[Rfam]
RNA sequence: GGCAACUUACUCCAAAGUAGUGAACGUAAUUUAUCGUGAGAUCAAUCUAUAGAUAUUAUGCUCAUUACUUUGGAUAUGUUGUG
Numbered sequence: 001g002g003c004a005a006c007u008u009a010c011u012c013c014a015a016a017g018u019a020g021u022g023a024a025c026g027u028a029a030u031u032u033a034u035c036g037u038g039a040g041a042u043c044a045a046u047c048u049a050u051a052g053a054u055a056u057u058a059u060g061c062u063c064a065u066u067a068c069u070u071u072g073g074a075u076a077u078g079u080u081g082u083g
Base pairs, nucleotide, nucleotide: 002082003081004080005079006078008076009075011074012073013072014071015070016069017068018067019066020065021064022063023062025060026059027058028057029056032055033054034053035052038047039046

The family of this 83-nucleotide sequence from Manduca sexta is "mir-2763 microRNA precursor family". The sequence is in the family's curated seed alignment. Rfam 15.1 lists 59 matches to the family in 43 species.